Bacterial large subunit ribosomal RNA: a 524-nucleotide part of an RNA from Bisgaardia hudsonensis.
A search with the family's covariance model found it, with a score of 2822 bits.
RNA sequence: GACUAAGCGUACAGGGCGGAUGCCUUGGCAAUCAGAGGCGAUGAAGGACGUGCUAAUCUGCGAAAAGCUUGGAUGAGUCGAUAAGAGACGUUUAAUCCAAGAUAUCCGAAUGGGGAAACCCAAUAGAUGAAGAAUCUAUUAUUUAAUACUGAAUACAUAGGUAUUAAAGGCGAACCGGGAGAACUGAAACAUCUAAGUACCCCGAGGAAAAGAAAUCAACCGAGAUUCCGUAAGUAGCGGCGAGCGAAAGUGGAAGAGCCUGUUAGUGAUAGUGGACUGGUAAGGAGAACAAGUUGGGAAAUUUGGCAAAAAAGGGUGAUAGCCCCGUAUCCGAAUACCAACCCAUAGUACUAAGCUAACGACAAGUAGGGCGGGACACGAGAAAUCCUGUUUGAAGAUGGGGGGACCAUCCUCCAAGGCUAAAUACUCCUGAUUGACCGAUAGUGAACCAGUACUGUGAAGGAAAGGCGAAAAGAACCCCGGUGAGGGGAGUGAAAUAGAACCUGAAACCCUGUACGUACAAG
Dot-bracket structure: ......((((((((((.....(((..(((((((((((((......((((((........))).....(((((((..(((.......))).....)))))))...)))....(((....)))(((((((.....))))))).(((((((((.........))))))))).))...(((((......((....)).......)))).).........((....))..((((((.....((.....))....)))))..((((.(((((...(.((((..(((((.(((...(((((......)))))........(((.......)))...)))...)))))..)))).).......)))))........((((((((.........))))))))......(((((......)))))..))))..)..)).))))))).))...............((....))....)).........((((.....)))).............).....)))))))))).....
Gene Ontology terms of the family: structural constituent of ribosome and ribosome.